[Rfam]
RNA sequence: GGACGGACAUCGGGAGACGCCGGCCUUGCGCCGGGGCCGAAGGAGCAGCCGCCCUGGCAAACUCUCAGGCAAAAGGACCGGGUCCGCAUA
Numbered sequence: 001g002g003a004c005g006g007a008c009a010u011c012g013g014g015a016g017a018c019g020c021c022g023g024c025c026u027u028g029c030g031c032c033g034g035g036g037c038c039g040a041a042g043g044a045g046c047a048g049c050c051g052c053c054c055u056g057g058c059a060a061a062c063u064c065u066c067a068g069g070c071a072a073a074a075g076g077a078c079c080g081g082g083u084c085c086g087c088a089u090a
Stems, first nucleotide, its partner, number of pairs: 006085001010081004020034004036070003039066002043064003049057002
Background: This 90-nucleotide RNA sequence from Paracoccus sphaerophysae belongs to the Rfam family "Glycine riboswitch aptamer". Pairs were carried over by alignment from the consensus structure. Taxonomically the source falls in Paracoccus (Bacteria, Pseudomonadota, Alphaproteobacteria, Paracoccaceae).